[Rfam]
RNA sequence: CCAGUAAAGGGUAAACCUGCCGAAAGACAGGGGCACAAAGUCGCGGGUCUAAGGUAGAAAUACUAAGACAGCCGGACUGCCUGGG
Numbered sequence: 001c002c003a004g005u006a007a008a009g010g011g012u013a014a015a016c017c018u019g020c021c022g023a024a025a026g027a028c029a030g031g032g033g034c035a036c037a038a039a040g041u042c043g044c045g046g047g048u049c050u051a052a053g054g055u056a057g058a059a060a061u062a063c064u065a066a067g068a069c070a071g072c073c074g075g076a077c078u079g080c081c082u083g084g085g
Base pairs, nucleotide, nucleotide: 001085003082004081011036012035016031017030018029019028021026034071039078040077041076042075044074045073046072047069048068049067
The family of this 85-nucleotide sequence from Paenibacillus donghaensis is "c-di-GMP-I-GGC riboswitch aptamer". Rfam links the family to the GO term cyclic-di-GMP binding. A search with the family's covariance model found it, with a score of 70 bits.